[Rfam]
RNA sequence: AGCCCUGCCUGGGGGCUGCCGCAAGGCGCUAUCAGGACGUGGAUUAGUCGGGCAGUGCCACGGUUCGAGAAAACCCCGACAGCC
Number, nucleotide and partner (000 for none) at each position: 001a000002g016003c015004c014005c013006u000007g000008c036009c035010u034011g033012g032013g005014g004015g003016c002017u000018g027019c026020c025021g000022c000023a000024a000025g020026g019027c018028g000029c000030u000031a000032u012033c011034a010035g009036g008037a000038c062039g061040u060041g059042g058043a000044u000045u000046a000047g080048u079049c078050g077051g076052g000053c000054a000055g000056u000057g000058c042059c041060a040061c039062g038063g000064u000065u000066c000067g000068a000069g000070a000071a000072a000073a000074c000075c000076c051077c050078g049079a048080c047081a000082g000083c000084c000
RNA: Proteo-phage-1 RNA